[Rfam]
This 180-nucleotide RNA from Phaseolus vulgaris belongs to the Rfam family "mir-166 microRNA precursor family". From the family's description: This family represents the plant microRNA (miRNA) precursor mir-166. A search with the family's covariance model found it, with a score of 66 bits. Rfam links the family to the GO terms miRNA-mediated post-transcriptional gene silencing and RISC complex. Lineage of the source: Eukaryota > Magnoliopsida > Mesangiospermae > Fabales > Phaseolus.

RNA sequence: UUUGAGGGGAAUGCUGCGUGGUCCAAGGAGAUCGAUCAUAUAUAACUCUACCUUUCACUACACACCAAAUUCAUAAAUAUAUUCACCAAAGUUCAUCAGAUCAUUCAGAUGAAAUAAUAGUAUAUAACAUCUGCAGAUUAUGUUUUAUGUCUCCUCGGACCAGGCUUCAUUCCCCUCAAU
Numbered sequence: 001u002u003u004g005a006g007g008g009g010a011a012u013g014c015u016g017c018g019u020g021g022u023c024c025a026a027g028g029a030g031a032u033c034g035a036u037c038a039u040a041u042a043u044a045a046c047u048c049u050a051c052c053u054u055u056c057a058c059u060a061c062a063c064a065c066c067a068a069a070u071u072c073a074u075a076a077a078u079a080u081a082u083u084c085a086c087c088a089a090a091g092u093u094c095a096u097c098a099g100a101u102c103a104u105u106c107a108g109a110u111g112a113a114a115u116a117a118u119a120g121u122a123u124a125u126a127a128c129a130u131c132u133g134c135a136g137a138u139u140a141u142g143u144u145u146u147a148u149g150u151c152u153c154c155u156c157g158g159a160c161c162a163g164g165c166u167u168c169a170u171u172c173c174c175c176u177c178a179a180u
Stems, first nucleotide, its partner, number of pairs: 002179012016165002019162003024157001026155007